[Rfam]
RNA sequence: CUGCAUUCUUAAACCCUCUUGGUAGCUUCGUUCUAAGUGCUUCCAAGAUAUGAGUGAAUGCUAUAGAAAUUGCAGGGGAGUCCAAAGGGCUGCGCUUCUCCCGUGGCUCAGUCUUAUUUCAUACCUGCGACA
Numbered sequence: 001c002u003g004c005a006u007u008c009u010u011a012a013a014c015c016c017u018c019u020u021g022g023u024a025g026c027u028u029c030g031u032u033c034u035a036a037g038u039g040c041u042u043c044c045a046a047g048a049u050a051u052g053a054g055u056g057a058a059u060g061c062u063a064u065a066g067a068a069a070u071u072g073c074a075g076g077g078g079a080g081u082c083c084a085a086a087g088g089g090c091u092g093c094g095c096u097u098c099u100c101c102c103g104u105g106g107c108u109c110a111g112u113c114u115u116a117u118u119u120c121a122u123a124c125c126u127g128c129g130a131c132a
Stems, first nucleotide, its partner, number of pairs: 003061004008054004017048006024041003070130007086115007094107002098103001
Small nucleolar RNA SNORA14: a 132-nucleotide RNA sequence. The base pairs follow the family's consensus structure, which was predicted with RNAfold. ACA14 is a member of the H/ACA class of snoRNA that guide the sites of modification of uridines to pseudouridines. Rfam classes the family as an H/ACA-box small nucleolar RNA.